This 169-nucleotide RNA from Arthrobacter subterraneus belongs to the Rfam family "c-di-AMP riboswitch aptamer (ydaO/yuaA leader)".

[Rfam]
RNA sequence: GCGGACGCAGUGCUGAACAGAUGGACAGGGGCGGAGGACCCACUACCGGUCAUGGCUCGCCAUGGCCUUGGGGUGAAGUUCGGGGAAUGCUACAGCGCACGUACCUGAGCCGAGUUUUCUCAUACUCGAAUCCGACAGCUAACUUCGCAGGCGAAAAAUGAGAGAGGGU
Numbered sequence: 001g002c003g004g005a006c007g008c009a010g011u012g013c014u015g016a017a018c019a020g021a022u023g024g025a026c027a028g029g030g031g032c033g034g035a036g037g038a039c040c041c042a043c044u045a046c047c048g049g050u051c052a053u054g055g056c057u058c059g060c061c062a063u064g065g066c067c068u069u070g071g072g073g074u075g076a077a078g079u080u081c082g083g084g085g086a087a088u089g090c091u092a093c094a095g096c097g098c099a100c101g102u103a104c105c106u107g108a109g110c111c112g113a114g115u116u117u118u119c120u121c122a123u124a125c126u127c128g129a130a131u132c133c134g135a136c137a138g139c140u141a142a143c144u145u146c147g148c149a150g151g152c153g154a155a156a157a158a159u160g161a162g163a164g165a166g167g168g169u
Stems, first nucleotide, its partner, number of pairs: 011153004018030001031148006041070002071133003079109006112127004
This family represents a conserved RNA structure found upstream of the ydaO and yuaA genes in Bacillus subtilis and related genes in other bacteria. The source organism's lineage runs through Bacteria, Bacillati, Actinomycetes, Micrococcaceae and Arthrobacter.